[Rfam]
RNA sequence: CAUUAGGUUGGUGCUAAAGUAAUUGUGGGUUUUGACAUUAUUUUCAAUGGCAAAACCCACAAUUACUUUAGCACCAACCUAAUA
Numbered sequence: 001c002a003u004u005a006g007g008u009u010g011g012u013g014c015u016a017a018a019g020u021a022a023u024u025g026u027g028g029g030u031u032u033u034g035a036c037a038u039u040a041u042u043u044u045c046a047a048u049g050g051c052a053a054a055a056c057c058c059a060c061a062a063u064u065a066c067u068u069u070a071g072c073a074c075c076a077a078c079c080u081a082a083u084a
Base pairs, nucleotide, nucleotide: 002083003082004081005080006079007078008077009076010075011074012073013072014071015070016069017068018067019066020065021064022063023062024061025060026059027058028057029056030055031054032053033052034051036049037048038047039046